Source information
Actinomyces-1 RNA: a 110-nucleotide RNA. It is one of the family's seed sequences. It is annotated as a small RNA.

RNA sequence: ACUGCCGUCGGACGGGACGGGUCGUGAGGGUUGGGGAACCCGUUGAGCGGUCCGUCACCGAGGUCGAGGCGGGUCUUAGGGAGCCCGCUCCGAUCGCUCCGGCGAAGGAG
Numbered sequence: 001a002c003u004g005c006c007g008u009c010g011g012a013c014g015g016g017a018c019g020g021g022u023c024g025u026g027a028g029g030g031u032u033g034g035g036g037a038a039c040c041c042g043u044u045g046a047g048c049g050g051u052c053c054g055u056c057a058c059c060g061a062g063g064u065c066g067a068g069g070c071g072g073g074u075c076u077u078a079g080g081g082a083g084c085c086c087g088c089u090c091c092g093a094u095c096g097c098u099c100c101g102g103c104g105a106a107g108g109a110g
Stems, first nucleotide, its partner, number of pairs: 006104007013060003018054007028041005062095003066090002070087005